[Rfam]
Nucleotides: 114
Stems, first nucleotide, its partner, number of pairs: 002032003010026006040083010050068006085104008105114003
Number, partner (000 for none) and nucleotide at each position: 001000a002032g003031c004030c005000u006000a007000a008000a009000a010026c011025u012024c013023a014022a015021u016000u017000u018000a019000a020000a021015g022014u023013u024012g025011a026010g027000c028000a029000u030004g031003g032002u033000a034000g035000u036000a037000a038000a039000a040083c041082c042081a043080u044079c045078u046077a047076c048075g049074g050068g051067a052066a053065c054064g055063g056000a057000a058000g059000c060000u061000c062000u063055c064054c065053g066052u067051u068050c069000a070000g071000c072000a073000a074049c075048c076047g077046u078045a079044g080043a081042u082041g083040g084000u085104a086103a087102u088101a089100u090099c091098u092097c093000g094000a095000a096000a097092g098091a099090g100089a101088u102087a103086u104085u105114g106113g107112c108000g109000c110000a111000a112107g113106c114105c
The family of this 114-nucleotide RNA is "LOOT RNA".
By type it is a small RNA.